[Rfam]
RNA sequence: GGAUGGGGUAGGGCUGGGGGCCAGUAGCUGGGCCACAGUCCCAGGAGGGCCUGGCGAUCCGUGUCUAGGCCCUGCCACCCUACGG
Numbered sequence: 001g002g003a004u005g006g007g008g009u010a011g012g013g014c015u016g017g018g019g020g021c022c023a024g025u026a027g028c029u030g031g032g033c034c035a036c037a038g039u040c041c042c043a044g045g046a047g048g049g050c051c052u053g054g055c056g057a058u059c060c061g062u063g064u065c066u067a068g069g070c071c072c073u074g075c076c077a078c079c080c081u082a083c084g085g
Stems, first nucleotide, its partner, number of pairs: 004082001006080001008078002011076002017073004027064002029061002032055004